A member of the RNA family "Glycine riboswitch aptamer" from Halonatronomonas betaini, 104 nucleotides long.
[Rfam]
RNA sequence: UUGAAAGAAGUGGGAGAGAGCUUUUUCAAGCCACCGAAGGGGUAAAUUUAUAAUCUGACCAGGUUAUAGAUGAAACUCUCAGGUAAAAGGACUACUUCUGGACA
Number, nucleotide and partner (000 for none) at each position: 001u000002u000003g000004a000005a000006a099007g098008a097009a096010g095011u094012g093013g092014g000015a000016g000017a000018g000019a000020g031021c030022u029023u028024u000025u000026u000027c000028a023029a022030g021031c020032c000033a084034c083035c082036g080037a079038a000039g000040g078041g077042g076043u000044a000045a000046a071047u070048u069049u068050a067051u066052a065053a064054u063055c062056u061057g000058a000059c000060c000061a056062g055063g054064u053065u052066a051067u050068a049069g048070a047071u046072g000073a000074a000075a000076c042077u041078c040079u037080c036081a000082g035083g034084u033085a000086a000087a000088a000089g000090g000091a000092c013093u012094a011095c010096u009097u008098c007099u006100g000101g000102a000103c000104a000
The source organism's lineage runs through Bacteria, Clostridia, Halanaerobiales, Halarsenatibacteraceae and Halonatronomonas.
The match comes from Rfam's covariance-model search (70 bits).